The record is a 221-nucleotide sequence from Paenibacillus foliorum, which matches "glmS glucosamine-6-phosphate activated ribozyme aptamer" in Rfam.
The base pairs follow the family's consensus structure, which is taken from published work.
The organism belongs to Paenibacillus, within Bacteria.
This entry contains a glucosamine-6-phosphate activated ribozyme that is found in the mRNA for GlmS. GlmS is an enzyme that uses fructose-6-phosphate and glutamine to generate glucosamine-6-phosphate. The ribozyme catalyses self cleavage of the glmS mRNA that is thought to regulate GlmS activity.
Rfam links the family to the GO terms regulation of gene expression and catalytic activity.
Rfam classes the family as a riboswitch.
The match comes from Rfam's covariance-model search (100 bits).
RNA sequence: GCAAUCAUAACAGCGCCAGAGCUUGUGGGGGUGUCGGCUAGGAUUACCGGUUCUUUUUGAAAGAAUGGUAUGUAGUCCUUGCACGGACAGCCGCUCGCAAGUUGACGAGGUGAAGGUGUUCGAAACAUUCGGCGGGGACCUUCCGGUAGACGAUGCUACCGUUAAGUUGGAAAGCAAACCAUCUGGGCGACCGGAUGCACAAGAGUCCAACAUGAUCGAAC
Numbered sequence: 001g002c003a004a005u006c007a008u009a010a011c012a013g014c015g016c017c018a019g020a021g022c023u024u025g026u027g028g029g030g031g032u033g034u035c036g037g038c039u040a041g042g043a044u045u046a047c048c049g050g051u052u053c054u055u056u057u058u059g060a061a062a063g064a065a066u067g068g069u070a071u072g073u074a075g076u077c078c079u080u081g082c083a084c085g086g087a088c089a090g091c092c093g094c095u096c097g098c099a100a101g102u103u104g105a106c107g108a109g110g111u112g113a114a115g116g117u118g119u120u121c122g123a124a125a126c127a128u129u130c131g132g133c134g135g136g137g138a139c140c141u142u143c144c145g146g147u148a149g150a151c152g153a154u155g156c157u158a159c160c161g162u163u164a165a166g167u168u169g170g171a172a173a174g175c176a177a178a179c180c181a182u183c184u185g186g187g188c189g190a191c192c193g194g195a196u197g198c199a200c201a202a203g204a205g206u207c208c209a210a211c212a213u214g215a216u217c218g219a220a221c
Base pairs, nucleotide, nucleotide: 020103021102022101023100024099025098026097027096029094112143113142114141115140116139120132121131122130123129144161145160146159147158148157149156166211167210168209169208170207171206180197181196182195183194184193185192186191